Shown here is a 44-nucleotide RNA sequence from Brucella rhizosphaerae, a member of the family "Guanidine-II riboswitch aptamer (mini-ykkC)". The source organism's lineage runs through Bacteria, Pseudomonadota, Alphaproteobacteria, Hyphomicrobiales and Brucella. Rfam 15.1 lists 1,589 matches to the family in 1,229 species. About the family: Simpler in structure and has fewer highly conserved nucleotide positions than the ykkC-yxkD leader. Pairs were carried over by alignment from the consensus structure, which is taken from published work. The match comes from Rfam's covariance-model search (32 bits).
RNA sequence: UGCGCGGGACGACCUGCGCCUGUGUUCGCAUAGGGGACGGCCCC
Dot-bracket structure: .(((((((....))))))).............((((....))))